[Rfam]
RNA sequence: UUUGAGAGGUCCCCAAAUGAUGCGAAGCAUCAUUUUUGUCAUGGGACCGACGAACUGCCGCUGAAGCGUAGCUGAGGGGGCGAGCACCAUA
Numbered sequence: 001u002u003u004g005a006g007a008g009g010u011c012c013c014c015a016a017a018u019g020a021u022g023c024g025a026a027g028c029a030u031c032a033u034u035u036u037u038g039u040c041a042u043g044g045g046a047c048c049g050a051c052g053a054a055c056u057g058c059c060g061c062u063g064a065a066g067c068g069u070a071g072c073u074g075a076g077g078g079g080g081c082g083a084g085c086a087c088c089a090u091a
Stems, first nucleotide, its partner, number of pairs: 008048006017033006057081003061077002065073002